[Rfam]
Alphaproteobacteria transfer-messenger RNA: a 352-nucleotide sequence from Marivita geojedonensis. Lineage of the source: Bacteria > Pseudomonadati > Alphaproteobacteria > Rhodobacterales > Marivita. It is annotated as a non-coding RNA gene. A search with the family's covariance model found it, with a score of 308 bits.
Nucleotides: 352
Stems, first nucleotide, its partner, number of pairs: 040053005057189005067182002069178004081167002085164003091107005108149007190205004196215002199213003318333004324349006
Number, partner (000 for none) and nucleotide at each position: 001000c002000c003000c004000c005000u006000u007000g008000a009000a010000u011000u012000c013000g014000c015000g016000c017000c018000g019000c020000g021000a022000a023000a024000c025000c026000c027000c028000g029000a030000u031000a032000u033000u034000c035000g036000g037000g038000a039000u040053g041052u042051u043050c044049c045000u046000u047000c048000g049044g050043g051042g052041a053040c054000u055000a056000u057189g058188g059187a060186c061185a062000u063000a064000a065000a066000c067182g068181c069178g070177c071176g072175u073000u074000c075000a076000a077000u078000a079000a080000g081167c082166g083000g084000c085164u086163c087162g088000g089000a090000c091107c092106c093105g094104g095103g096000g097000g098000c099000g100000g101000u102000a103095c104094c105093c106092g107091g108149c109148g110147g111146c112145u113144c114143c115000a116000c117000c118000a119000a120000a121000a122000a123000c124000c125000u126000g127000u128000c129000a130000u131000u132000u133000g134000c135000a136000g137000g138000a139000u140000c141000a142000u143114g144113g145112g146111g147110c148109c149108g150000a151000a152000a153000c154000a155000g156000g157000a158000u159000c160000g161000a162087c163086g164085a165000a166082c167081g168000u169000c170000u171000a172000a173000a174000c175072a176071c177070g178069u179000u180000a181068g182067c183000u184000u185061u186060g187059u188058c189057c190205c191204g192203g193202u194000u195000a196215g197214a198000u199213a200212c201211c202193a203192c204191c205190g206000u207000u208000a209000u210000c211201g212200g213199u214197u215196c216000a217000a218000a219000c220000a221000g222000u223000a224000u225000a226000g227000u228000u229000g230000c231000a232000a233000a234000u235000g236000a237000c238000a239000a240000c241000c242000a243000u244000g245000c246000u247000c248000c249000g250000g251000u252000g253000g254000c255000a256000a257000u258000g259000g260000c261000u262000g263000c264000g265000u266000a267000a268000g269000c270000a271000g272000u273000c274000g275000g276000a277000u278000c279000u280000a281000c282000c283000g284000a285000u286000c287000u288000u289000u290000a291000a292000g293000c294000c295000c296000u297000g298000a299000c300000g301000c302000c303000u304000a305000g306000c307000c308000g309000c310000g311000u312000c313000a314000g315000g316000c317000g318333g319332g320331g321330u322000u323000c324349g325348c326347a327346g328345g329344c330321a331320c332319c333318u334000g335000g336000c337000a338000a339000c340000a341000g342000a343000a344329g345328c346327c347326u348325g349324c350000a351000u352000u